This 72-nucleotide sequence from Absidia repens belongs to the Rfam family "tRNA". It is annotated as a transfer RNA. The match comes from Rfam's covariance-model search (58 bits). The source organism's lineage runs through Eukaryota, Fungi, Mucoromycota, Cunninghamellaceae and Absidia.
[Rfam]
RNA sequence: AGCUUAAUAGCUCAGGGGAAGAGCGAUGGGCCCAUAACCCAUAGGUCUGUGGAUCGAAACCACAUUAAGCUA
Numbered sequence: 001a002g003c004u005u006a007a008u009a010g011c012u013c014a015g016g017g018g019a020a021g022a023g024c025g026a027u028g029g030g031c032c033c034a035u036a037a038c039c040c041a042u043a044g045g046u047c048u049g050u051g052g053a054u055c056g057a058a059a060c061c062a063c064a065u066u067a068a069g070c071u072a
Stems, first nucleotide, its partner, number of pairs: 001071007010024004026042005048064005